[Rfam]
RNA sequence: CGCGUAUUUCGCCCAGGCGGAACUCGACCGACCGGUCAGGACAUGAUCGCAUUCAUUGAGGAAUGCCGGGACGAGUUCAGCGUCGGGUCGAUCUGCAGCGUGCUGCCGAUCGCGCCA
Dot-bracket structure: ...............(.(((.......))).)...............................................(((......((.((.((((....)))).)).)))))..

ALIL pseudoknot: a 117-nucleotide RNA sequence from Antarctobacter albus. For this family Rfam cites "Apical loop-internal loop RNA pseudoknots: a new type of stimulator of -1 translational frameshifting in bacteria" (Mazauric et al., J Biol Chem, 2008). Rfam classes the family as a cis-regulatory element. Pairs were carried over by alignment from the consensus structure, which is taken from published work.